RNA: azaaromatic riboswitch aptamer (yjdF RNA)
Organism: Clostridium sp. chh4-2
RNA sequence: AAAAGCAAAGAUAAAAACACAGUCCCGGUAGGUAGUCCGGGCGCAGCGGUCAAUAUUAGUGAAAACGCUGUCAGUAACCCUCCUCCUGGUCGUCCGUUCUUUGUUCAUUACUA
Numbered sequence: 001a002a003a004a005g006c007a008a009a010g011a012u013a014a015a016a017a018c019a020c021a022g023u024c025c026c027g028g029u030a031g032g033u034a035g036u037c038c039g040g041g042c043g044c045a046g047c048g049g050u051c052a053a054u055a056u057u058a059g060u061g062a063a064a065a066c067g068c069u070g071u072c073a074g075u076a077a078c079c080c081u082c083c084u085c086c087u088g089g090u091c092g093u094c095c096g097u098u099c100u101u102u103g104u105u106c107a108u109u110a111c112u113a
Stems, first nucleotide, its partner, number of pairs: 004105008022042002025040004043071006082089002
Dot-bracket structure: ...((((((((..........((.((((........))))))((((((.................))))))..........((....))........))))))))........